Rfam assigns this 99-nucleotide RNA from Priestia filamentosa to the family "skipping-rope RNA". Rfam classes the family as a small RNA. A search with the family's covariance model found it, with a score of 50 bits. Taxonomically the source falls in Priestia (Bacteria, Bacillota, Caryophanales, Bacillaceae).
RNA sequence: ACUAGUAGAGGAUAGAAAGGCUUCUAUCGCCCUCUUCGAUAAAUCAGGGAGAUGUGGGAAACCGAACGGAUAAGUUACGGAGCUGCCCCACCUACUAGU
Number, nucleotide and partner (000 for none) at each position: 001a099002c098003u097004a096005g095006u094007a093008g092009a000010g000011g028012a027013u026014a025015g024016a000017a000018a000019g000020g000021c000022u000023u000024c015025u014026a013027u012028c011029g000030c049031c048032c047033u046034c000035u000036u000037c000038g000039a000040u000041a000042a000043a000044u000045c000046a033047g032048g031049g030050a000051g000052a000053u000054g091055u090056g089057g088058g087059a000060a000061a000062c000063c000064g000065a000066a000067c000068g000069g000070a000071u000072a000073a000074g000075u000076u000077a000078c000079g000080g000081a000082g000083c000084u000085g000086c000087c058088c057089c056090a055091c054092c008093u007094a006095c005096u004097a003098g002099u001